Background:
The family of this 56-nucleotide RNA from Streptomyces smaragdinus is "msiK RNA". Rfam classes the family as a cis-regulatory element. A search with the family's covariance model found it, with a score of 50 bits.

[Rfam]
RNA sequence: GGACUAAACCUUUACUCGGAUCGUCCGGCACGUUCCUGCCGGUGAAGGAGUGCGAC
Number, nucleotide and partner (000 for none) at each position: 001g000002g000003a000004c000005u000006a000007a000008a000009c048010c047011u046012u045013u044014a043015c000016u000017c000018g000019g000020a000021u000022c000023g000024u000025c042026c041027g040028g039029c038030a037031c000032g000033u000034u000035c000036c000037u030038g029039c028040c027041g026042g025043u014044g013045a012046a011047g010048g009049a000050g000051u000052g000053c000054g000055a000056c000